[Rfam]
RNA sequence: AUGUUCCUUCGGGGUCGGGUGAAAUUCCCAAUCGGCGGUGAUGAAGCCAGCUUCUGAGUCCGCUACCCGUGCGGUUUUUGACCAAGCGGUGGAUCCGGUGAAACUCCGGAACCGACAGUGACAGUCUGGAUGGGAGAAGGAAUUU
Numbered sequence: 001a002u003g004u005u006c007c008u009u010c011g012g013g014g015u016c017g018g019g020u021g022a023a024a025u026u027c028c029c030a031a032u033c034g035g036c037g038g039u040g041a042u043g044a045a046g047c048c049a050g051c052u053u054c055u056g057a058g059u060c061c062g063c064u065a066c067c068c069g070u071g072c073g074g075u076u077u078u079u080g081a082c083c084a085a086g087c088g089g090u091g092g093a094u095c096c097g098g099u100g101a102a103a104c105u106c107c108g109g110a111a112c113c114g115a116c117a118g119u120g121a122c123a124g125u126c127u128g129g130a131u132g133g134g135a136g137a138a139g140g141a142a143u144u145u
Stems, first nucleotide, its partner, number of pairs: 003143008017029003031125002033114002035063004058112002067089002094110005116128003

This 145-nucleotide RNA from Lentibacillus sp. CBA3610 belongs to the Rfam family "FMN riboswitch aptamer (RFN element)". The RFN element is a highly conserved domain that is found frequently in the 5'-untranslated regions of prokaryotic mRNAs that encode for flavin mononucleotide (FMN) biosynthesis and transport proteins. This element is a metabolite-dependent riboswitch that directly binds FMN in the absence of proteins. In Bacillus subtilis, the riboswitch most likely controls gene expression by causing premature transcription termination within the 5' untranslated region of the ribDEAHT operon and precluding access to the ribosome-binding site of ypaA mRNA.The FMN riboswitch structure, reported in present an FMN-bound six-stem junction, adopts a butterfly-like scaffold, stapled together by opposingly directed but nearly identically folded peripheral domains.